[Rfam]
RNA sequence: AUACUCCCUCCGUCCCAUAAUGUAGGACGUUUUUCGUCACUAUUAUAGUGACGAAAAACGUCCUACAUUAUGGGACGGAGGGAGUAU
Number, nucleotide and partner (000 for none) at each position: 001a000002u000003a085004c084005u083006c000007c081008c080009u079010c078011c077012g000013u075014c074015c073016c072017a071018u000019a069020a068021u067022g066023u065024a064025g063026g062027a061028c060029g059030u058031u057032u056033u055034u054035c053036g052037u051038c050039a049040c048041u047042a000043u000044u000045a000046u000047a041048g040049u039050g038051a037052c036053g035054a034055a033056a032057a031058a030059c029060g028061u027062c026063c025064u024065a023066c022067a021068u020069u019070a000071u017072g016073g015074g014075a013076c000077g011078g010079a009080g008081g007082g000083a005084g004085u003086a000087u000
A member of the RNA family "MIR1120/MIR1122 microRNA precursor family" from Triticum aestivum, 87 nucleotides long. Gene Ontology terms of the family: miRNA-mediated post-transcriptional gene silencing and RISC complex. For this family Rfam cites "Cloning and characterization of microRNAs from wheat (Triticum aestivum L.)" (Yao et al., Genome Biol, 2007).